[Rfam]
RNA sequence: AAUCGGCCUACUCCAUUACUGGACGUGUCCUUACAUGGUGUGCCGAGGGGAAUGCGCCUCACUAACAGCGGCAAUUUUGCCGGAAAAGUGAAAAAACAAGAUAACUGGGUAGAGUUUGGUAGGUGCCUUCUGGCAGUCGAAGAAGUCGGGCCCA
Number, nucleotide and partner (000 for none) at each position: 001a000002a000003u046004c045005g044006g043007c042008c000009u000010a000011c040012u000013c038014c037015a000016u000017u000018a032019c000020u000021g030022g029023a028024c000025g000026u000027g000028u023029c022030c021031u000032u018033a000034c000035a000036u000037g014038g013039u000040g011041u000042g007043c006044c005045g004046a003047g000048g058049g057050g000051a000052a000053u000054g000055c000056g000057c049058c048059u091060c090061a089062c088063u087064a000065a000066c000067a000068g000069c082070g081071g080072c079073a078074a000075u000076u000077u000078u073079g072080c071081c070082g069083g000084a000085a000086a000087a063088g062089u061090g060091a059092a000093a000094a000095a000096a000097c000098a000099a000100g000101a000102u000103a000104a000105c000106u154107g153108g152109g151110u150111a000112g147113a146114g000115u144116u143117u142118g000119g000120u000121a000122g137123g000124u135125g134126c133127c000128u000129u000130c000131u000132g000133g126134c125135a124136g000137u122138c000139g000140a000141a000142g117143a116144a115145g000146u113147c112148g000149g000150g110151c109152c108153c107154a106
RNA: RT-3 RNA